[Rfam]
Shown here is a 77-nucleotide RNA from Canis lupus, a member of the family "Small nucleolar RNA SNORD81". The family has 22 seed sequences and 317 matches in Rfam 15.1. The family's consensus secondary structure was predicted with PFOLD. The source organism's lineage runs through Eukaryota, Bilateria, Craniata, Euteleostomi and Canis lupus. Its Rfam clan is "SNORD26 clan".
RNA sequence: CAGAAUACAUGAUGAUCUCAUUGCAACUUGAACUCUCUCACUGAUCAUUUGAUGAUUUUAAAAGAUCUGAUAUUCUG
Dot-bracket structure: (((((((...............................................................)))))))
Numbered sequence: 001c002a003g004a005a006u007a008c009a010u011g012a013u014g015a016u017c018u019c020a021u022u023g024c025a026a027c028u029u030g031a032a033c034u035c036u037c038u039c040a041c042u043g044a045u046c047a048u049u050u051g052a053u054g055a056u057u058u059u060a061a062a063a064g065a066u067c068u069g070a071u072a073u074u075c076u077g
Stems, first nucleotide, its partner, number of pairs: 001077007